[Rfam]
RNA sequence: GCGCUCCCGUUGUGUGAUGGUCAAGGCCACCACACCCAUGAGUUUGAUCUGGUCUCGCCCCUGGGCCACAAGCCCACGGCCAUGCGUACCCACCGUAACCACUGCCCAGCCGGGCGGCAGGACGGGCGCAGUUUCCGCAGGGAGCAAUCCGCGCGGCGACGUAGAUAGCGAGAACCUCCC
Numbered sequence: 001g002c003g004c005u006c007c008c009g010u011u012g013u014g015u016g017a018u019g020g021u022c023a024a025g026g027c028c029a030c031c032a033c034a035c036c037c038a039u040g041a042g043u044u045u046g047a048u049c050u051g052g053u054c055u056c057g058c059c060c061c062u063g064g065g066c067c068a069c070a071a072g073c074c075c076a077c078g079g080c081c082a083u084g085c086g087u088a089c090c091c092a093c094c095g096u097a098a099c100c101a102c103u104g105c106c107c108a109g110c111c112g113g114g115c116g117g118c119a120g121g122a123c124g125g126g127c128g129c130a131g132u133u134u135c136c137g138c139a140g141g142g143a144g145c146a147a148u149c150c151g152c153g154c155g156g157c158g159a160c161g162u163a164g165a166u167a168g169c170g171a172g173a174a175c176c177u178c179c180c
Stems, first nucleotide, its partner, number of pairs: 004042003012035005018029004053173006059079002062076005083130005093125004099121002102117005132159002135156004141150003
A member of the RNA family "RT-15 RNA" from Polaromonas sp. OV174, 180 nucleotides long. A search with the family's covariance model found it, with a score of 135 bits. Pairs were carried over by alignment from the consensus structure, which is taken from published work. By type it is a small RNA.